[Rfam]
RNA: Bacterial large signal recognition particle RNA
Organism: Faecalibacterium sp. CAG:1138
RNA sequence: CUGUGCUAGACGGGGAAUUAGCGGUGCCCUGUAUCUGAAACCCGCUAUACGCAGAGUCGAAUGCUUCCCGAGGCCUUUCCUAUGGUUGGCCGAUUGCGCCAAGGAGCGUCGAUGUUAAGGUCUCGUGCAAUGUCUAACUGUGAACCUGGUCAGGGCUUGACCGCAGCAGCCAUAAGCAGUCCCGGACAUGUGCCACGAGGUAGCUUUAACGGAGCCACCUGCCGCAAUACCGCUUCGGUGGGGAUUGUCGACGGAAGAUGCACAG
Number, nucleotide and partner (000 for none) at each position: 001c265002u264003g263004u262005g261006c260007u000008a000009g058010a057011c056012g030013g029014g028015g027016a000017a025018u024019u023020a000021g000022c000023g019024g018025u017026g000027c015028c014029c013030u012031g000032u000033a000034u055035c054036u053037g052038a000039a000040a000041c000042c000043c000044g000045c000046u000047a000048u000049a000050c000051g000052c037053a036054g035055a034056g011057u010058c009059g000060a000061a000062u000063g000064c257065u256066u255067c254068c253069c000070g000071a000072g249073g248074c247075c000076u000077u000078u000079c242080c241081u240082a239083u238084g000085g236086u000087u000088g233089g000090c000091c000092g000093a228094u000095u226096g225097c224098g223099c000100c221101a000102a000103g219104g218105a000106g215107c214108g000109u000110c000111g000112a000113u211114g210115u209116u208117a207118a206119g205120g204121u203122c199123u198124c197125g196126u195127g194128c190129a189130a000131u188132g187133u186134c185135u184136a000137a180138c179139u178140g177141u176142g000143a000144a000145c000146c000147u172148g171149g170150u169151c000152a000153g000154g000155g164156c163157u000158u000159g000160a000161c000162c000163g156164c155165a000166g000167c000168a000169g150170c149171c148172a147173u000174a000175a000176g141177c140178a139179g138180u137181c000182c000183c000184g135185g134186a133187c132188a131189u129190g128191u000192g000193c000194c127195a126196c125197g124198a123199g122200g000201u000202a000203g121204c120205u119206u118207u117208a116209a115210c114211g113212g000213a000214g107215c106216c000217a000218c104219c103220u000221g100222c000223c098224g097225c096226a095227a000228u093229a000230c000231c000232g000233c088234u000235u000236c085237g000238g083239u082240g081241g080242g079243g000244a000245u000246u000247g074248u073249c072250g000251a000252c000253g068254g067255a066256a065257g064258a000259u000260g006261c005262a004263c003264a002265g001